Shown here is a 118-nucleotide sequence from Mesorhizobium waimense, a member of the family "Alphaproteobacterial ar14". Gene Ontology term of the family: biological process involved in symbiotic interaction. For this family Rfam cites "A survey of sRNA families in alpha-proteobacteria" (del Val et al., RNA Biol, 2012). Rfam describes the family as follows. Smr14C2 was renamed NfeR1 (Nodule Formation Efficiency RNA) highly expressed in salt stress and during the symbiotic interaction on legume roots.
RNA sequence: UGCUGUCGGCCAUCUCCUCCUCCCAGAUGGAUGCCGAUACUGAAUGCGGUGCACCUCCUCCCGCGCCGUAUUCGAAAAUAGAGCCCGCUGCCACCUCCUCCCGGCAGCGGGCUUUUCU
Numbered sequence: 001u002g003c004u005g006u007c008g009g010c011c012a013u014c015u016c017c018u019c020c021u022c023c024c025a026g027a028u029g030g031a032u033g034c035c036g037a038u039a040c041u042g043a044a045u046g047c048g049g050u051g052c053a054c055c056u057c058c059u060c061c062c063g064c065g066c067c068g069u070a071u072u073c074g075a076a077a078a079u080a081g082a083g084c085c086c087g088c089u090g091c092c093a094c095c096u097c098c099u100c101c102c103g104g105c106a107g108c109g110g111g112c113u114u115u116u117c118u
Stems, first nucleotide, its partner, number of pairs: 007036003011029004042073010082113011

The family's RNA type in Rfam is small RNA. Lineage of the source: Bacteria > Pseudomonadati > Pseudomonadota > Alphaproteobacteria > Mesorhizobium.